Shown here is a 104-nucleotide RNA sequence, a member of the family "skipping-rope RNA". The sequence is in the family's curated seed alignment.
[Rfam]
RNA sequence: AACUGUUGAGGUGGGAACCGCCACCCCACGCACUUGGCCGCAAAGCCAAGUAAUUAACCGCCGUAAGGCGGCCAAGAGAUCGCGGUUGGCAACGCGCGACAGUU
Numbered sequence: 001a002a003c004u005g006u007u008g009a010g011g012u013g014g015g016a017a018c019c020g021c022c023a024c025c026c027c028a029c030g031c032a033c034u035u036g037g038c039c040g041c042a043a044a045g046c047c048a049a050g051u052a053a054u055u056a057a058c059c060g061c062c063g064u065a066a067g068g069c070g071g072c073c074a075a076g077a078g079a080u081c082g083c084g085g086u087u088g089g090c091a092a093c094g095c096g097c098g099a100c101a102g103u104u
Stems, first nucleotide, its partner, number of pairs: 001104008011029005020090003031076001032051007081096003